[Rfam]
RNA: Bacterial large subunit ribosomal RNA, nucleotides 1403 to 1885
Organism: Corynebacterium gerontici
RNA sequence: GAAUGAGCAGUGAAAACCUGCUCCGCCGAAUGACGAAGGGUUCCUGGGUCAAGCUAAUCUUCCCAGGGUGAGUCGGGACCUAAGGCGAGGCCGACAGGCGUAGUCGAUGGACAACCAGUUGAUAUUCUGGUACCUCACAACAGCCGUCCAUGACGAAGCAGUGGUACUAACCACCCACCCCAACCCGCAACAACCACUUGUGGUUGUGUGGUGUUGGGUGUGCGUGGGACCUUCAUUGGUAGUAGUCAAGCGAUGGGGUGACACAGGUUGGUAGCCACGCCACGAGGUUGGUUUUCGUGGUGUAAGCGUGCAGCCCGUCUACUAGGCAAAUCCGGUAGGCAUCAUGGGUCAGGCGUGAUACGAAUCCCACUAUGAGUGGGGAAGGUGGUGAUCCUGGACUGUCGAGAAAAGCCUCUAGCGAGGAUGUUGUGAGCCCGUACCCCAAACCGACACAGGUCGUCAAGUAGAGUAUACUCAGGCGAA
Number, nucleotide and partner (000 for none) at each position: 001g000002a000003a000004u000005g023006a022007g021008c020009a019010g018011u000012g000013a000014a000015a000016a000017c000018c010019u009020g008021c007022u006023c005024c481025g480026c479027c478028g000029a000030a000031u000032g461033a460034c459035g458036a000037a000038g441039g440040g000041u000042u000043c067044c066045u065046g064047g063048g062049u000050c000051a000052a060053g059054c000055u000056a000057a000058u000059c053060u052061u000062c048063c047064c046065a045066g044067g043068g000069u000070g000071a000072g000073u000074c437075g436076g435077g434078a000079c110080c109081u000082a000083a000084g105085g104086c103087g000088a101089g000090g099091c098092c097093g000094a000095c000096a000097g092098g091099c090100g000101u088102a000103g086104u085105c084106g000107a000108u000109g080110g079111a000112c000113a000114a131115c130116c129117a128118g127119u000120u000121g000122a000123u000124a000125u000126u000127c118128u117129g116130g115131u114132a000133c000134c433135u432136c431137a430138c429139a428140a427141c426142a425143g000144c423145c000146g000147u000148c000149c000150a000151u000152g000153a000154c000155g000156a000157a000158g000159c000160a000161g000162u000163g000164g000165u000166a000167c000168u000169a000170a000171c000172c000173a000174c000175c000176c000177a000178c000179c000180c000181c000182a000183a000184c000185c000186c000187g000188c000189a000190a000191c000192a000193a000194c000195c000196a000197c000198u000199u000200g000201u000202g000203g000204u000205u000206g000207u000208g000209u000210g000211g000212u000213g000214u000215u000216g000217g000218g000219u000220g000221u000222g000223c000224g000225u000226g000227g000228g000229a000230c000231c000232u000233u000234c000235a000236u000237u000238g000239g000240u000241a000242g000243u000244a000245g000246u000247c000248a000249a000250g419251c418252g000253a000254u000255g415256g414257g413258g412259u411260g000261a000262c000263a402264c401265a400266g399267g000268u000269u000270g394271g393272u000273a000274g389275c388276c387277a386278c385279g301280c300281c299282a298283c297284g296285a000286g000287g000288u000289u000290g000291g000292u000293u000294u000295u000296c284297g283298u282299g281300g280301u279302g361303u360304a000305a000306g356307c355308g354309u353310g000311c000312a000313g349314c348315c347316c000317g340318u339319c338320u337321a336322c335323u334324a000325g333326g332327c000328a000329a000330a000331u000332c326333c325334g323335g322336u321337a320338g319339g318340c317341a000342u000343c000344a000345u000346g000347g315348g314349u313350c000351a000352g000353g309354c308355g307356u306357g000358a000359u000360a303361c302362g000363a000364a000365u381366c380367c379368c378369a377370c376371u000372a000373u000374g000375a000376g370377u369378g368379g367380g366381g365382a000383a000384g000385g278386u277387g276388g275389u274390g000391a000392u000393c271394c270395u000396g000397g000398a000399c266400u265401g264402u263403c000404g000405a000406g000407a000408a000409a000410a000411g259412c258413c257414u256415c255416u000417a000418g251419c250420g000421a000422g000423g144424a000425u142426g141427u140428u139429g138430u137431g136432a135433g134434c077435c076436c075437g074438u000439a000440c039441c038442c000443c000444a000445a000446a000447c456448c455449g000450a000451c000452a000453c000454a000455g448456g447457u000458c035459g034460u033461c032462a000463a475464g474465u473466a472467g000468a000469g000470u000471a000472u466473a465474c464475u463476c000477a000478g027479g026480c025481g024482a000483a000